[Rfam]
The family of this 139-nucleotide RNA from Candidatus Hakubella thermalkaliphila is "Group II catalytic intron D1-D4-4".
RNA sequence: UGUUAGGUAUCAAGUCCCGUCAUGGUAACUACCAGGAGGCCAUGUAGCUGAUUCCCGGCGUCAGGAGAGAUCCGGGCGUCGAAGCGGAAUGACAAAGUACUCUGUAAGGAGGCGAGCAAAUCCACAGUCCGUACCAUAA
Numbered sequence: 001u002g003u004u005a006g007g008u009a010u011c012a013a014g015u016c017c018c019g020u021c022a023u024g025g026u027a028a029c030u031a032c033c034a035g036g037a038g039g040c041c042a043u044g045u046a047g048c049u050g051a052u053u054c055c056c057g058g059c060g061u062c063a064g065g066a067g068a069g070a071u072c073c074g075g076g077c078g079u080c081g082a083a084g085c086g087g088a089a090u091g092a093c094a095a096a097g098u099a100c101u102c103u104g105u106a107a108g109g110a111g112g113c114g115a116g117c118a119a120a121u122c123c124a125c126a127g128u129c130c131g132u133a134c135c136a137u138a139a
Base pairs, nucleotide, nucleotide: 021044022043023042024041025040051090052089053088054087055086056081057080058079059078060077061076065072066071097113098112100111101110102109116132117131
For this family Rfam cites "The ins and outs of group II introns" (Bonen and Vogel, Trends Genet, 2001). Lineage of the source: Bacteria > Bacillati > Candidatus Hakubellales > Candidatus Hakubellaceae > Candidatus Hakubella. From the family's description: Group II introns are found in rRNA, tRNA and mRNA of organelles in fungi, plants and protists, and also in mRNA in bacteria. A search with the family's covariance model found it, with a score of 81 bits.